RNA sequence: CUAUAAGAGGAGUUUUACUUUUUAGGUUCAUUAUAAAACUAAUGUAUCUAGACUAUAAUAUUGUCCAAAUACAUUAGUUUUACAAUGAACCUAAAAAGUAAAACUCCUCUUAUAA
Numbered sequence: 001c002u003a004u005a006a007g008a009g010g011a012g013u014u015u016u017a018c019u020u021u022u023u024a025g026g027u028u029c030a031u032u033a034u035a036a037a038a039c040u041a042a043u044g045u046a047u048c049u050a051g052a053c054u055a056u057a058a059u060a061u062u063g064u065c066c067a068a069a070u071a072c073a074u075u076a077g078u079u080u081u082a083c084a085a086u087g088a089a090c091c092u093a094a095a096a097a098g099u100a101a102a103a104c105u106c107c108u109c110u111u112a113u114a115a
Stems, first nucleotide, its partner, number of pairs: 002114006009107005015101011027089006034082011049067001051065002
RNA: MIR2593 microRNA precursor family